[Rfam]
DUF3800-VII RNA: an 82-nucleotide RNA sequence from Paracoccus lutimaris. The family's RNA type in Rfam is small RNA. The family's consensus secondary structure is taken from published work.
RNA sequence: GGUAGUCAUGCGCCGGAAAACCCCAGAGUGGCCUAAAAGCCGCAGGCGGAGACGCAAUCAUGGGCCGGGGGGCUACCCUACC
Numbered sequence: 001g002g003u004a005g006u007c008a009u010g011c012g013c014c015g016g017a018a019a020a021c022c023c024c025a026g027a028g029u030g031g032c033c034u035a036a037a038a039g040c041c042g043c044a045g046g047c048g049g050a051g052a053c054g055c056a057a058u059c060a061u062g063g064g065c066c067g068g069g070g071g072g073c074u075a076c077c078c079u080a081c082c
Stems, first nucleotide, its partner, number of pairs: 001077007011069001013068004022064004028043005046055003